[Rfam]
RNA sequence: GUGGGCAUCGUCACCGUGCAGCCGACGAGCGUGCCGGUCGUCGCCGAUUUGCCGGGCCGCACCAACGCCUAUCUCGUCGCGCAAGUGCGCGCUCGGGUGGACGGCAUCGUGCUGCGCCGCGAGUUCACCGAAGGCUCCGAGGUCAAGGUCGGUCAGCGGCUCUACAAGAUCGA
Numbered sequence: 001g002u003g004g005g006c007a008u009c010g011u012c013a014c015c016g017u018g019c020a021g022c023c024g025a026c027g028a029g030c031g032u033g034c035c036g037g038u039c040g041u042c043g044c045c046g047a048u049u050u051g052c053c054g055g056g057c058c059g060c061a062c063c064a065a066c067g068c069c070u071a072u073c074u075c076g077u078c079g080c081g082c083a084a085g086u087g088c089g090c091g092c093u094c095g096g097g098u099g100g101a102c103g104g105c106a107u108c109g110u111g112c113u114g115c116g117c118c119g120c121g122a123g124u125u126c127a128c129c130g131a132a133g134g135c136u137c138c139g140a141g142g143u144c145a146a147g148g149u150c151g152g153u154c155a156g157c158g159g160c161u162c163u164a165c166a167a168g169a170u171c172g173a
Stems, first nucleotide, its partner, number of pairs: 004053004008047003011043001013041002016038001019036001021034002023031002055150004059143002063139001067135002072133001074131002079092004094121002097118001100115001102114005157172002160168002
RNA: Burkholderia RNA 14